[Rfam]
RNA sequence: CGCAUUCACCCGGGGGGUCCCGUCAAGGGGCUGAGAUUCUGAUAGCCGGUCCGGCAGGUCCGUGCAGCGCAGUGACCCGAUGAACCUGAUCCAGUUCAUACUGGCGUAGGGAUGGUGUACCCGCUGCGGC
Numbered sequence: 001c002g003c004a005u006u007c008a009c010c011c012g013g014g015g016g017g018u019c020c021c022g023u024c025a026a027g028g029g030g031c032u033g034a035g036a037u038u039c040u041g042a043u044a045g046c047c048g049g050u051c052c053g054g055c056a057g058g059u060c061c062g063u064g065c066a067g068c069g070c071a072g073u074g075a076c077c078c079g080a081u082g083a084a085c086c087u088g089a090u091c092c093a094g095u096u097c098a099u100a101c102u103g104g105c106g107u108a109g110g111g112a113u114g115g116u117g118u119a120c121c122c123g124c125u126g127c128g129g130c
Stems, first nucleotide, its partner, number of pairs: 007117004011079004016073001017031005039072003085110004091104004
Shown here is a 130-nucleotide sequence from Consotaella salsifontis, a member of the family "TPP riboswitch aptamer (THI element)". A search with the family's covariance model found it, with a score of 64 bits. NCBI's taxonomy places the organism under Bacteria, Pseudomonadati, Pseudomonadota, Aurantimonadaceae, Consotaella. The base pairs follow the family's consensus structure, which is taken from published work. Rfam links the family to the GO term thiamine pyrophosphate binding.